[Rfam]
RNA sequence: UCCCUGUGAUGAUUCGUCUCCUGUCUUACAUACUGUGUAGAGGCAGAACCUGCAAAGGUGAACCCACUGUCUCUCUCGGUAUGAAAUGAGGAUUGCUUGUUUUCCAAAACAGUCUGAUGGGAC
Numbered sequence: 001u002c003c004c005u006g007u008g009a010u011g012a013u014u015c016g017u018c019u020c021c022u023g024u025c026u027u028a029c030a031u032a033c034u035g036u037g038u039a040g041a042g043g044c045a046g047a048a049c050c051u052g053c054a055a056a057g058g059u060g061a062a063c064c065c066a067c068u069g070u071c072u073c074u075c076u077c078g079g080u081a082u083g084a085a086a087u088g089a090g091g092a093u094u095g096c097u098u099g100u101u102u103u104c105c106a107a108a109a110c111a112g113u114c115u116g117a118u119g120g121g122a123c
Stems, first nucleotide, its partner, number of pairs: 001122004